[Rfam]
RNA sequence: GUGAAAUGAUGAUGACGUUCAUCCAUUCUCCAAACAUGCUGCCUGUCUGCCUGGCGCUUUGGGACUCUCGUUCUGGGGGCUCUGAGCUAUGCAGCCACCACACACCCUGAAGUCUUCCAGCAUUCUGUUGGGGACAGUGGGUGGGUGUGGGCCUGCGGUCAGGAAUGAGACAGGGGCAGCCAAGAUGGUGCCCUUUUGUUUGGGGUCCCAUCGGGCUGAGAUGAAGGCUGAUAGUCUGAUCGC
Numbered sequence: 001g002u003g004a005a006a007u008g009a010u011g012a013u014g015a016c017g018u019u020c021a022u023c024c025a026u027u028c029u030c031c032a033a034a035c036a037u038g039c040u041g042c043c044u045g046u047c048u049g050c051c052u053g054g055c056g057c058u059u060u061g062g063g064a065c066u067c068u069c070g071u072u073c074u075g076g077g078g079g080c081u082c083u084g085a086g087c088u089a090u091g092c093a094g095c096c097a098c099c100a101c102a103c104a105c106c107c108u109g110a111a112g113u114c115u116u117c118c119a120g121c122a123u124u125c126u127g128u129u130g131g132g133g134a135c136a137g138u139g140g141g142u143g144g145g146u147g148u149g150g151g152c153c154u155g156c157g158g159u160c161a162g163g164a165a166u167g168a169g170a171c172a173g174g175g176g177c178a179g180c181c182a183a184g185a186u187g188g189u190g191c192c193c194u195u196u197u198g199u200u201u202g203g204g205g206u207c208c209c210a211u212c213g214g215g216c217u218g219a220g221a222u223g224a225a226g227g228c229u230g231a232u233a234g235u236c237u238g239a240u241c242g243c
Stems, first nucleotide, its partner, number of pairs: 010242004017235003024227001026225003030220001035215001038180004042175001043173006051163002054159002056088001058086005063080001065079005091156004096151001104142002106139001112135003116132007184212005191205004

A member of the RNA family "Small nucleolar RNA SNORD17" from Vombatus ursinus, 243 nucleotides long. The source organism's lineage runs through Eukaryota, Metazoa, Euteleostomi, Vombatidae and Vombatus.